[Rfam]
RNA sequence: AACAUGCUCCGGGGUCGGUGAAAGUCCGAACCGGCGGUGAGAGUCCGCGACCCGCUCGUCCGCGAGCGGUUGACUCAGUGAAAUUCUGGGACCGACGGUUAAAGUCCGGAUGGUAGGUGCAUGGG
Numbered sequence: 001a002a003c004a005u006g007c008u009c010c011g012g013g014g015u016c017g018g019u020g021a022a023a024g025u026c027c028g029a030a031c032c033g034g035c036g037g038u039g040a041g042a043g044u045c046c047g048c049g050a051c052c053c054g055c056u057c058g059u060c061c062g063c064g065a066g067c068g069g070u071u072g073a074c075u076c077a078g079u080g081a082a083a084u085u086c087u088g089g090g091a092c093c094g095a096c097g098g099u100u101a102a103a104g105u106c107c108g109g110a111u112g113g114u115a116g117g118u119g120c121a122u123g124g125g
Stems, first nucleotide, its partner, number of pairs: 003123005009117002016028003030105002032094002034048004043092002052069002074090005096108003
RNA: FMN riboswitch aptamer (RFN element)